[Rfam]
RNA: Small nucleolar RNA ACA64
RNA sequence: ACAGUCUGAAAAUCACUUGGGGUCUUCUGUGGUCCCUGGUGUGAUAACUGUGCCAAAUAGCAGAGGGAGCAUUAAACUCAUUGCCCACGGUAAAGUGCGGGGAGUCAUACCCAUGUUCCUAUAAUC
Numbered sequence: 001a002c003a004g005u006c007u008g009a010a011a012a013u014c015a016c017u018u019g020g021g022g023u024c025u026u027c028u029g030u031g032g033u034c035c036c037u038g039g040u041g042u043g044a045u046a047a048c049u050g051u052g053c054c055a056a057a058u059a060g061c062a063g064a065g066g067g068a069g070c071a072u073u074a075a076a077c078u079c080a081u082u083g084c085c086c087a088c089g090g091u092a093a094a095g096u097g098c099g100g101g102g103a104g105u106c107a108u109a110c111c112c113a114u115g116u117u118c119c120u121a122u123a124a125u126c
Stems, first nucleotide, its partner, number of pairs: 006050001008048001010045001014041003021034004066119001068117005078107001080105003086097003